[Rfam]
RNA: Small Cajal body specific RNA 24
Organism: Myotis myotis
RNA sequence: UGGACCUUUAUUUUUAUUCAAUUUCUUCAUUAGGUGAAAACAACUCUUUGUAAAUGUCCUACAGAGAUACAGUAGCUUUCUCUUCACCCUUUGCAAGUAAAAAGGGUGGAUCAUCCCAUUCUACUACUGCCAUAA
Numbered sequence: 001u002g003g004a005c006c007u008u009u010a011u012u013u014u015u016a017u018u019c020a021a022u023u024u025c026u027u028c029a030u031u032a033g034g035u036g037a038a039a040a041c042a043a044c045u046c047u048u049u050g051u052a053a054a055u056g057u058c059c060u061a062c063a064g065a066g067a068u069a070c071a072g073u074a075g076c077u078u079u080c081u082c083u084u085c086a087c088c089c090u091u092u093g094c095a096a097g098u099a100a101a102a103a104g105g106g107u108g109g110a111u112c113a114u115c116c117c118a119u120u121c122u123a124c125u126a127c128u129g130c131c132a133u134a135a
Base pairs, nucleotide, nucleotide: 002059003058004057005056007054008053009052010051011050020045022043023042024040026038027037028036070129071128072127073126074125075124089104090103091102092101